[Rfam]
RNA sequence: UAUGGCGGAUAGUCGCAGUUGUGUUAACAGUUGAGGAAAUUCGAGACACGCCCGUCGCGUAAGUGACGGAGUAUGGUGCCUGGUGCAAGCCAGGGCAGGGUAACCUGACGACGGCCAACGUCUCUGUUCGCAGAGGCCAGUAGCCAUAAAGUGCCACAGAAACGAUGUCUUCCGGUGACGGAAGAGUGCAAGGGUAAACUCCACUAGCGUGCAACCCAAAUAGGCGGCUUUGCCGCGGGUAGGGGCACCUGUGUAAGCAGGAAGGAAUUAUCAUUCCUUAGACAAAUGACUAUCGCCCGGUUUGCCGGGAACAGAAUCUCGAUUACAGCC
Number, nucleotide and partner (000 for none) at each position: 001u000002a000003u000004g330005g329006c328007g326008g294009a293010u292011a291012g290013u289014c288015g000016c033017a032018g031019u030020u029021g028022u000023g000024u000025u000026a000027a000028c021029a020030g019031u018032u017033g016034a000035g000036g000037a000038a324039a323040u322041u000042c321043g320044a319045g318046a317047c211048a210049c209050g208051c207052c069053c068054g067055u066056c065057g064058c000059g000060u000061a000062a000063g000064u057065g056066a055067c054068g053069g052070a000071g000072u000073a000074u206075g205076g204077u203078g202079c094080c093081u092082g091083g090084u089085g000086c000087a000088a000089g084090c083091c082092a081093g080094g079095g109096c107097a106098g105099g104100g000101u000102a000103a000104c099105c098106u097107g096108a000109c095110g201111a200112c000113g145114g144115c143116c000117a000118a000119c000120g137121u136122c135123u134124c133125u132126g131127u000128u000129c000130g000131c126132a125133g124134a123135g122136g121137c120138c000139a000140g000141u000142a000143g115144c114145c113146a000147u000148a000149a000150a000151g199152u198153g195154c194155c193156a000157c000158a000159g000160a000161a000162a000163c000164g000165a000166u000167g000168u185169c184170u183171u182172c181173c180174g179175g000176u000177g000178a000179c174180g173181g172182a171183a170184g169185a168186g000187u000188g000189c000190a000191a000192g000193g155194g154195u153196a000197a000198a152199c151200u111201c110202c078203a077204c076205u075206a074207g051208c050209g049210u048211g047212c000213a000214a000215c244216c243217c242218a000219a000220a000221u000222a000223g000224g000225c000226g000227g000228c000229u000230u000231u000232g000233c000234c000235g000236c000237g000238g000239g000240u000241a000242g217243g216244g215245g000246c000247a000248c261249c260250u259251g258252u257253g000254u000255a000256a000257g252258c251259a250260g249261g248262a279263a278264g277265g276266a275267a274268u000269u000270a000271u000272c000273a000274u267275u266276c265277c264278u263279u262280a000281g000282a000283c000284a000285a000286a000287u000288g014289a013290c012291u011292a010293u009294c008295g000296c309297c308298c307299g306300g305301u000302u000303u000304g000305c300306c299307g298308g297309g296310a000311a000312c000313a000314g000315a000316a000317u046318c045319u044320c043321g042322a040323u039324u038325a000326c007327a000328g006329c005330c004

Rfam assigns this 330-nucleotide RNA from Heliophilum fasciatum to the family "Bacterial RNase P class B".
A reference for the family is Frank and Pace (1998), "Ribonuclease P: unity and diversity in a tRNA processing ribozyme", Annu Rev Biochem.
Lineage of the source: Bacteria > Bacillati > Eubacteriales > Heliobacteriaceae > Heliophilum.
Rfam's curators write: Ribonuclease P (RNase P) is a ubiquitous endoribonuclease, found in archaea, bacteria and eukarya as well as chloroplasts and mitochondria. Its best characterised activity is the generation of mature 5'-ends of tRNAs by cleaving the 5'-leader elements of precursor-tRNAs. Cellular RNase Ps are ribonucleoproteins. RNA from bacterial RNase Ps retains its catalytic activity in the absence of the protein subunit, i.e. it is a ribozyme.
By type it is a ribozyme.
The family is grouped with related families in Rfam's "RNaseP clan".
The family's consensus secondary structure is taken from published work.